Description:
Rfam assigns this 146-nucleotide RNA from Pseudomonas benzenivorans to the family "radC RNA". The source organism's lineage runs through Bacteria, Pseudomonadati, Gammaproteobacteria, Pseudomonadaceae and Pseudomonas. Rfam classes the family as a cis-regulatory element. The family's consensus secondary structure is taken from published work.
RNA sequence: AUGAUAUGGCCGUGCUUUGCUGACGUCGUCAGCAACAUGCCCAUGCAGCUCGGAUCCGAAAGGCUGCGACACGGUUUUCCGCGUUGAUCCACCCAAGGCCGCUUAGCUUCUGGUAGCGCGGCCGGUCGACCUCGGUCGAUAGAAGC
Number, nucleotide and partner (000 for none) at each position: 001a000002u000003g000004a000005u000006a000007u000008g000009g000010c000011c039012g038013u037014g036015c000016u034017u000018u000019g033020c032021u031022g030023a029024c028025g000026u000027c000028g024029u023030c022031a021032g020033c019034a016035a000036c014037a013038u012039g011040c000041c000042c000043a000044u000045g067046c066047a065048g064049c063050u062051c000052g000053g089054a088055u087056c086057c000058g000059a000060a000061a000062g050063g049064c048065u047066g046067c045068g085069a084070c083071a000072c081073g080074g079075u000076u000077u000078u000079c074080c073081g072082c000083g070084u069085u068086g056087a055088u054089c053090c000091a000092c000093c000094c000095a000096a000097g000098g000099c000100c000101g000102c000103u000104u000105a000106g000107c000108u000109u000110c000111u000112g000113g000114u000115a000116g000117c000118g146119c145120g000121g000122c000123c000124g000125g140126u139127c138128g137129a136130c135131c000132u000133c000134g000135g130136u129137c128138g127139a126140u125141a000142g000143a000144a000145g119146c118